[Rfam]
Shown here is a 78-nucleotide sequence from Balaenoptera physalus, a member of the family "Small nucleolar RNA SNORD116".
Rfam classes the family as a C/D-box small nucleolar RNA.
Lineage of the source: Eukaryota > Craniata > Vertebrata > Laurasiatheria > Balaenoptera.
The family's consensus secondary structure was predicted with PFOLD.
On this family, see Cavaille et al., Proc Natl Acad Sci U S A 2000: "Identification of brain-specific and imprinted small nucleolar RNA genes exhibiting an unusual genomic organization".
RNA sequence: GGAUUGAUGAUGACUCCCAUAAAUGCACUGCUUGGAAAUCUGAACAAAAUGAAUGUGUCUCAGGUUUCUCCGAGGUCC
Numbered sequence: 001g002g003a004u005u006g007a008u009g010a011u012g013a014c015u016c017c018c019a020u021a022a023a024u025g026c027a028c029u030g031c032u033u034g035g036a037a038a039u040c041u042g043a044a045c046a047a048a049a050u051g052a053a054u055g056u057g058u059c060u061c062a063g064g065u066u067u068c069u070c071c072g073a074g075g076u077c078c
Stems, first nucleotide, its partner, number of pairs: 001078005026055002029052001032047003